The record is a 145-nucleotide sequence from Hordeum vulgare, which matches "small nucleolar RNA snoR135" in Rfam. Rfam links the family to the GO terms RNA processing and nucleolus. On this family, see Chen and Wu, Nucleic Acids Res 2009: "Mining small RNA sequencing data: a new approach to identify small nucleolar RNAs in Arabidopsis". The base pairs follow the family's consensus structure, which was predicted with RNAalifold. The organism belongs to Hordeum vulgare, within Eukaryota.

RNA sequence: UUUGCAGGAUAAGUGUGUAUCGGUUAAAUGCCUCGUCUGUGCAUUUCUUGCCGAAAGUUUUUCCUUGCUAUAUUAAUUUGAGGAAAAUGGGCAGUUAGGUUGGGCUUGAUAAUCUCUUUCACUAACAAUCAUUUUCCUCUCAUUU
Numbered sequence: 001u002u003u004g005c006a007g008g009a010u011a012a013g014u015g016u017g018u019a020u021c022g023g024u025u026a027a028a029u030g031c032c033u034c035g036u037c038u039g040u041g042c043a044u045u046u047c048u049u050g051c052c053g054a055a056a057g058u059u060u061u062u063c064c065u066u067g068c069u070a071u072a073u074u075a076a077u078u079u080g081a082g083g084a085a086a087a088u089g090g091g092c093a094g095u096u097a098g099g100u101u102g103g104g105c106u107u108g109a110u111a112a113u114c115u116c117u118u119u120c121a122c123u124a125a126c127a128a129u130c131a132u133u134u135u136c137c138u139c140u141c142a143u144u145u
Base pairs, nucleotide, nucleotide: 004068005067006066007064008063009062015044016043017042018041019040020039080139081138082137083136084135085134086133087132088131089130090129094126095125096124097123